A member of the RNA family "MIR530 microRNA precursor family" from Vigna radiata, 185 nucleotides long.

RNA sequence: GCCGAUAUGUUGCCUUUAUCUGCAUUUGCACCUGCACUUUACUUGGUUUCUCUGUAACAUAAAUGAGCACAUGUCAAUUGAGGAGAAAGAGAAAUAUAUUAUAUUAUAUUAUAUAUAUAUAUGUAUAUGAAUGGAGAAACUGAGAAUGAGGUGCAGGUGCAUAUGCAGGUGAAUGUCAUAUCGGA
Numbered sequence: 001g002c003c004g005a006u007a008u009g010u011u012g013c014c015u016u017u018a019u020c021u022g023c024a025u026u027u028g029c030a031c032c033u034g035c036a037c038u039u040u041a042c043u044u045g046g047u048u049u050c051u052c053u054g055u056a057a058c059a060u061a062a063a064u065g066a067g068c069a070c071a072u073g074u075c076a077a078u079u080g081a082g083g084a085g086a087a088a089g090a091g092a093a094a095u096a097u098a099u100u101a102u103a104u105u106a107u108a109u110u111a112u113a114u115a116u117a118u119a120u121a122u123g124u125a126u127a128u129g130a131a132u133g134g135a136g137a138a139a140c141u142g143a144g145a146a147u148g149a150g151g152u153g154c155a156g157g158u159g160c161a162u163a164u165g166c167a168g169g170u171g172a173a174u175g176u177c178a179u180a181u182c183g184g185a
Base pairs, nucleotide, nucleotide: 002184003183004182005181006180007179008178009177012176013175015173016172017171018170019169020168021167022166023165024164025163027161028160029159030158031157032156033155034154035153036152037151038150039149047094048093049092050091051090052089053088
Its family is annotated with RISC complex and miRNA-mediated post-transcriptional gene silencing in the Gene Ontology.